RNA sequence: CUUCAGCGAGCCCAGCCAGAGCGGUUCAUCGCGGUCCUGGCCGUAGGUCGCCAGCACCGCCUGCGCCUC
Numbered sequence: 001c002u003u004c005a006g007c008g009a010g011c012c013c014a015g016c017c018a019g020a021g022c023g024g025u026u027c028a029u030c031g032c033g034g035u036c037c038u039g040g041c042c043g044u045a046g047g048u049c050g051c052c053a054g055c056a057c058c059g060c061c062u063g064c065g066c067c068u069c
Base pairs, nucleotide, nucleotide: 014026015025016024017023032059033058037054038053039052041050043048
This 69-nucleotide RNA from Amycolatopsis sp. SID8362 belongs to the Rfam family "ASpks TB sRNA". The source organism's lineage runs through Bacteria, Actinomycetes, Pseudonocardiales, Pseudonocardiaceae and Amycolatopsis.